Rfam assigns this 109-nucleotide sequence from Brassica rapa to the family "small nucleolar RNA snoR127".
The source organism's lineage runs through Eukaryota, Streptophytina, malvids, Brassiceae and Brassica rapa.
Pairs were carried over by alignment from the consensus structure, which was predicted with RNAalifold.
Its family is annotated with nucleolus and RNA processing in the Gene Ontology.
For this family Rfam cites "Mining small RNA sequencing data: a new approach to identify small nucleolar RNAs in Arabidopsis" (Chen and Wu, Nucleic Acids Res, 2009).
Rfam classes the family as a C/D-box small nucleolar RNA.

[Rfam]
RNA sequence: CUGGAGUGAUGAUGCUUAGCCAAAUCAGAUAUGUGCUCCAAAAGGUACAUGCCUCUUGUUGAAGCGCGUCUUGGACGAUAUCACAGAGAAUGGUUUUUGCCUGACCAGA
Numbered sequence: 001c002u003g004g005a006g007u008g009a010u011g012a013u014g015c016u017u018a019g020c021c022a023a024a025u026c027a028g029a030u031a032u033g034u035g036c037u038c039c040a041a042a043a044g045g046u047a048c049a050u051g052c053c054u055c056u057u058g059u060u061g062a063a064g065c066g067c068g069u070c071u072u073g074g075a076c077g078a079u080a081u082c083a084c085a086g087a088g089a090a091u092g093g094u095u096u097u098u099g100c101c102u103g104a105c106c107a108g109a
Stems, first nucleotide, its partner, number of pairs: 001108004